[Rfam]
ROOL RNA: a 567-nucleotide RNA sequence. Pairs were carried over by alignment from the consensus structure, which is taken from published work.
RNA sequence: UGUUUUGACAAAUAUAUCGUAUAACUCGGUGCACUAAAGGGUUGUCAACCCCUCCGAGAAUACCGGAAGCUGUGACCAGGCUGCCUGCGGGAUACUGCGGCAGUGAGGUUUCUGUUGCUCUGUGAGGACUGACAGAGAAGCCCAAAAGGCAACACAGAACGGUAUGUGCGGAUCUUGGUGCCGAUUAAAGCACAAAGGAUUCUGGCAGCGACAAUAGACGCUAGCUCGAAAGGCUAGAAAAAUCCGUGAAACCUGCAGCAGGGGUGCUGCAGCGAACUUAGCGGAAACUCCGAAGCAAGCUGUUGGUAGUGAAGCGGAGAAAUCCGUGUAUAACAGAAUUCUGAGGUAAAAGUAGCUCAAUACCAGAGUGUUGCUAGUUCUCGAAACUAGCUGGCUCAAUUAUCUGAAAGAUGGGUGAAAUUUGUGGGUAGCCAUUCCCGCGGCAGGCAAAAGGGGCAGGAAGCUCAGGGUCGCUCCCGAAGGCUCAGACCUGUCUUCUGCGUGGCUGAAGAAUUUGGAAACCGUAGAUUACGUAAGGCGAAGGUCUAUAUGAUAUAUUUGUCAAAG
Numbered sequence: 001u002g003u004u005u006u007g008a009c010a011a012a013u014a015u016a017u018c019g020u021a022u023a024a025c026u027c028g029g030u031g032c033a034c035u036a037a038a039g040g041g042u043u044g045u046c047a048a049c050c051c052c053u054c055c056g057a058g059a060a061u062a063c064c065g066g067a068a069g070c071u072g073u074g075a076c077c078a079g080g081c082u083g084c085c086u087g088c089g090g091g092a093u094a095c096u097g098c099g100g101c102a103g104u105g106a107g108g109u110u111u112c113u114g115u116u117g118c119u120c121u122g123u124g125a126g127g128a129c130u131g132a133c134a135g136a137g138a139a140g141c142c143c144a145a146a147a148g149g150c151a152a153c154a155c156a157g158a159a160c161g162g163u164a165u166g167u168g169c170g171g172a173u174c175u176u177g178g179u180g181c182c183g184a185u186u187a188a189a190g191c192a193c194a195a196a197g198g199a200u201u202c203u204g205g206c207a208g209c210g211a212c213a214a215u216a217g218a219c220g221c222u223a224g225c226u227c228g229a230a231a232g233g234c235u236a237g238a239a240a241a242a243u244c245c246g247u248g249a250a251a252c253c254u255g256c257a258g259c260a261g262g263g264g265u266g267c268u269g270c271a272g273c274g275a276a277c278u279u280a281g282c283g284g285a286a287a288c289u290c291c292g293a294a295g296c297a298a299g300c301u302g303u304u305g306g307u308a309g310u311g312a313a314g315c316g317g318a319g320a321a322a323u324c325c326g327u328g329u330a331u332a333a334c335a336g337a338a339u340u341c342u343g344a345g346g347u348a349a350a351a352g353u354a355g356c357u358c359a360a361u362a363c364c365a366g367a368g369u370g371u372u373g374c375u376a377g378u379u380c381u382c383g384a385a386a387c388u389a390g391c392u393g394g395c396u397c398a399a400u401u402a403u404c405u406g407a408a409a410g411a412u413g414g415g416u417g418a419a420a421u422u423u424g425u426g427g428g429u430a431g432c433c434a435u436u437c438c439c440g441c442g443g444c445a446g447g448c449a450a451a452a453g454g455g456g457c458a459g460g461a462a463g464c465u466c467a468g469g470g471u472c473g474c475u476c477c478c479g480a481a482g483g484c485u486c487a488g489a490c491c492u493g494u495c496u497u498c499u500g501c502g503u504g505g506c507u508g509a510a511g512a513a514u515u516u517g518g519a520a521a522c523c524g525u526a527g528a529u530u531a532c533g534u535a536a537g538g539c540g541a542a543g544g545u546c547u548a549u550a551u552g553a554u555a556u557a558u559u560u561g562u563c564a565a566a567g
Stems, first nucleotide, its partner, number of pairs: 011560002025058005039051004060165006074110004081103005087098004111136007119128003140150003172530001175527001178523001184516001190507001193345001196342009205303005222236004243285005254274003258270003262291003304365005314327005349421001355416005403489004427439002443501003453498004459492002463485001465482001468478003536547004
Rfam classes the family as a small RNA.
Rfam's curators write: Firmicutes, Fusobacteria (1 example), Tenericutes (1 example).